[Rfam]
Nucleotides: 161
Stems, first nucleotide, its partner, number of pairs: 002056003006052001012045006019038002022033002100155008118136006
Number, partner (000 for none) and nucleotide at each position: 001000u002056u003055g004054u005000c006052u007000g008000a009000a010000u011000g012045u013044u014043a015042a016041g017040g018000c019038c020037u021000u022033c023032a024000a025000u026000c027000u028000a029000u030000a031000g032023u033022g034000u035000u036000g037020g038019g039000u040017c041016u042015u043014u044013a045012a046000a047000c048000a049000a050000c051000a052006a053000u054004g055003c056002a057000u058000a059000c060000a061000u062000g063000a064000a065000a066000a067000g068000c069000c070000c071000u072000u073000c074000u075000a076000u077000u078000g079000g080000g081000c082000a083000g084000c085000g086000g087000u088000c089000a090000g091000a092000c093000a094000a095000c096000c097000a098000c099000a100155g101154a102153g103152a104151u105150g106149g107148a108000u109000c110000c111000a112000c113000a114000g115000a116000u117000a118136a119135a120134u121133g122132g123131u124000a125000g126000u127000u128000a129000a130000u131123a132122c133121c134120a135119u136118u137000c138000g139000u140000c141000u142000a143000c144000u145000a146000a147000u148107u149106c150105c151104a152103u153102c154101u155100c156000a157000a158000a159000u160000u161000u
The family of this 161-nucleotide RNA from Kingdonia uniflora is "small nucleolar RNA snoR143". Gene Ontology terms of the family: RNA processing and nucleolus. The family's consensus secondary structure was predicted with RNAalifold. The match comes from Rfam's covariance-model search (85 bits). By type it is an H/ACA-box small nucleolar RNA. NCBI's taxonomy places the organism under Eukaryota, Streptophyta, Tracheophyta, Circaeasteraceae, Kingdonia. The literature on the family includes a 2009 paper in Nucleic Acids Res by Chen and Wu, "Mining small RNA sequencing data: a new approach to identify small nucleolar RNAs in Arabidopsis".